The family of this 259-nucleotide RNA sequence from Loxodonta africana is "Small Cajal body specific RNA 6". Rfam describes the family as follows. U88 is small Cajal body specific RNA (scaRNA). scaRNAs are a novel class of small nuclear RNAs which localise to the Cajal bodies. U88 is found associated with both fibrillarin and Gar1p and co-localises with coilin in Cajal bodies. By type it is a small Cajal body RNA. The organism belongs to Loxodonta, within Eukaryota. On this family, see Huttenhofer et al., EMBO J 2001: "RNomics: an experimental approach that identifies 201 candidates for novel, small, non-messenger RNAs in mouse". Rfam links the family to the GO terms nucleolus and RNA processing. Pairs were carried over by alignment from the consensus structure, which is taken from published work.
RNA sequence: GGCCCGUGAUGACUGGUAAAAGGUCUGACCACCCAGAUCCCCCGGCACCCUGCCGGUCCCCAGCUGCCCCUCUCCCGUCAGGCUCCAGUCGUGCCGUGAUGGCCACAGGGCAGCUGACACCCGGUGGUGCCCCGUCCUGUGUCCCUGGCGAGCUUGGGGAGACGCCGUGGUUGGCACCCAACAGCACAGUGACAAAGGAAUUUGGACCCUGGGAGUGCCGGGGCCUGAGGUGAUGAUCUGACGUUUCCAAGCUGAGGCC
Numbered sequence: 001g002g003c004c005c006g007u008g009a010u011g012a013c014u015g016g017u018a019a020a021a022g023g024u025c026u027g028a029c030c031a032c033c034c035a036g037a038u039c040c041c042c043c044g045g046c047a048c049c050c051u052g053c054c055g056g057u058c059c060c061c062a063g064c065u066g067c068c069c070c071u072c073u074c075c076c077g078u079c080a081g082g083c084u085c086c087a088g089u090c091g092u093g094c095c096g097u098g099a100u101g102g103c104c105a106c107a108g109g110g111c112a113g114c115u116g117a118c119a120c121c122c123g124g125u126g127g128u129g130c131c132c133c134g135u136c137c138u139g140u141g142u143c144c145c146u147g148g149c150g151a152g153c154u155u156g157g158g159g160a161g162a163c164g165c166c167g168u169g170g171u172u173g174g175c176a177c178c179c180a181a182c183a184g185c186a187c188a189g190u191g192a193c194a195a196a197g198g199a200a201u202u203u204g205g206a207c208c209c210u211g212g213g214a215g216u217g218c219c220g221g222g223g224c225c226u227g228a229g230g231u232g233a234u235g236a237u238c239u240g241a242c243g244u245u246u247c248c249a250a251g252c253u254g255a256g257g258c259c
Base pairs, nucleotide, nucleotide: 001259002258003257004256034240035239036238037237038236039235042212043211044210045209057200059198060197061116062115063114064113065112066111067110075102076101077100078099079098080097082095083093124179126178127177128176129175130174131173139165140164141163142162143159144158145157146156147155